[Rfam]
RNA sequence: AAUAGUUUAAUGUCACAUCAACUUUUUUUUCUCUUGAAUUUUAGCAUUUCCCUCUUAAAAAAAUCAAAUCCAACUGAAAAUAUUGAAAUUCAGGAGGAAAAAAUUAAUGUGACAUUAAACUAUU
Numbered sequence: 001a002a003u004a005g006u007u008u009a010a011u012g013u014c015a016c017a018u019c020a021a022c023u024u025u026u027u028u029u030u031c032u033c034u035u036g037a038a039u040u041u042u043a044g045c046a047u048u049u050c051c052c053u054c055u056u057a058a059a060a061a062a063a064u065c066a067a068a069u070c071c072a073a074c075u076g077a078a079a080a081u082a083u084u085g086a087a088a089u090u091c092a093g094g095a096g097g098a099a100a101a102a103a104u105u106a107a108u109g110u111g112a113c114a115u116u117a118a119a120c121u122a123u124u
Stems, first nucleotide, its partner, number of pairs: 001124018020105002025102005031096011043084002047080003
RNA: MIR7504 microRNA precursor family